This 78-nucleotide RNA sequence from Roseburia sp. CAG:18 belongs to the Rfam family "Fluoride riboswitch aptamer (crcB RNA motif)". Gene Ontology terms of the family: response to fluoride and positive regulation of gene expression. NCBI's taxonomy places the organism under Bacteria, Bacillati, Bacillota, Lachnospirales, Roseburia. Pairs were carried over by alignment from the consensus structure, which is taken from published work.
RNA sequence: UCUGUCAAUGGGAAUGAAGUUCUCCCAAGGGAAUUUCCCUGAACUGCUGAACGAUAAGCUGAUGACUUCUACGAUUGU
Numbered sequence: 001u002c003u004g005u006c007a008a009u010g011g012g013a014a015u016g017a018a019g020u021u022c023u024c025c026c027a028a029g030g031g032a033a034u035u036u037c038c039c040u041g042a043a044c045u046g047c048u049g050a051a052c053g054a055u056a057a058g059c060u061g062a063u064g065a066c067u068u069c070u071a072c073g074a075u076u077g078u
Stems, first nucleotide, its partner, number of pairs: 010026004016069006046059003